[Rfam]
Nucleotides: 109
Base pairs, nucleotide, nucleotide: 001109002108003107004106005105006104007103008102013042014041015040016039017038021031022030023029027082028081043076044075045074046073048072049071050069051068052067080101084098085097086096
Number, partner (000 for none) and nucleotide at each position: 001109g002108c003107u004106u005105u006104a007103u008102c009000g010000a011000g012000a013042g014041u015040g016039g017038u018000g019000g020000a021031g022030g023029g024000a025000a026000a027082g028081g029023c030022c031021c032000u033000g034000u035000g036000a037000a038017a039016c040015c041014a042013c043076a044075g045074c046073a047000a048072c049071c050069g051068g052067u053000u054000c055000g056000c057000g058000a059000a060000a061000g062000c063000g064000a065000a066000u067052g068051c069050c070000a071049g072048g073046u074045g075044c076043u077000a078000a079000a080101u081028c082027c083000u084098g085097c086096c087000g088000a089000c090000u091000g092000a093000c094000c095000a096086g097085g098084c099000g100000a101080a102008g103007a104006u105005g106004a107003g108002g109001u